Shown here is a 116-nucleotide sequence from Anisodus acutangulus, a member of the family "U5 spliceosomal RNA". The match comes from Rfam's covariance-model search (72 bits).
RNA sequence: AUUCACGCAGUGAGCACAAAACGAACUAUUCUUUCGCUUUUUACUAAAGAAUAUUGUGUGCGCAUUGCAACUAGUGGCAUACGCCUAUUUUUGGAGGGGUUCUCUUCAUUGAGUGU
Numbered sequence: 001a002u003u004c005a006c007g008c009a010g011u012g013a014g015c016a017c018a019a020a021a022c023g024a025a026c027u028a029u030u031c032u033u034u035c036g037c038u039u040u041u042u043a044c045u046a047a048a049g050a051a052u053a054u055u056g057u058g059u060g061c062g063c064a065u066u067g068c069a070a071c072u073a074g075u076g077g078c079a080u081a082c083g084c085c086u087a088u089u090u091u092u093g094g095a096g097g098g099g100u101u102c103u104c105u106u107c108a109u110u111g112a113g114u115g116u
Base pairs, nucleotide, nucleotide: 003077004076005075006074008067009066010065011064012063014061015060016059017058018057027053028052029051030050031049032048033047034046097116099114100113101112102111

About this RNA: Rfam links the family to the GO terms spliceosomal tri-snRNP complex assembly and U5 snRNP. The base pairs follow the family's consensus structure, which is taken from published work. Rfam classes the family as a spliceosomal small nuclear RNA.